[Rfam]
RNA: tRNA
Organism: Pseudonocardia sediminis
RNA sequence: GCCCUCGUAGCCCAACGGCAGAGGCAGGCCCCUUAAAAGGGUCCCAGUGUCGGUUCGAGUCCGACCGGGGGCA
Numbered sequence: 001g002c003c004c005u006c007g008u009a010g011c012c013c014a015a016c017g018g019c020a021g022a023g024g025c026a027g028g029c030c031c032c033u034u035a036a037a038a039g040g041g042u043c044c045c046a047g048u049g050u051c052g053g054u055u056c057g058a059g060u061c062c063g064a065c066c067g068g069g070g071g072c073a
Stems, first nucleotide, its partner, number of pairs: 001072007010025003027043005049065005